[Rfam]
Nucleotides: 141
Base pairs, nucleotide, nucleotide: 002067003066004065005064006063007062008061010060011059021056022055023054024051025050026049027048028047029046030045031044032043079136080135081134082133083132084131086128087127088126089125092122093121094120095119096118097117099114101112102111104109
Number, partner (000 for none) and nucleotide at each position: 001000u002067c003066g004065u005064c006063c007062u008061g009000g010060c011059c012000a013000c014000g015000c016000c017000c018000u019000u020000g021056g022055c023054u024051g025050c026049c027048g028047g029046u030045g031044c032043u033000c034000a035000g036000c037000u038000c039000c040000u041000g042000a043032g044031g045030u046029g047028c048027c049026g050025g051024c052000u053000c054023a055022g056021u057000c058000u059011g060010g061008c062007a063006g064005g065004a066003c067002g068000c069000a070000u071000a072000g073000u074000g075000u076000a077000c078000c079136c080135c081134c082133c083132u084131c085000a086128g087127u088126u089125u090000a091000g092122g093121a094120g095119g096118g097117c098000a099114g100000c101112c102111c103000g104109a105000a106000g107000a108000a109104u110000g111102g112101g113000u114099c115000u116000g117097g118096c119095u120094c121093u122092u123000a124000a125089a126088g127087g128086c129000a130000c131084g132083a133082g134081g135080g136079g137000a138000c139000a140000a141000u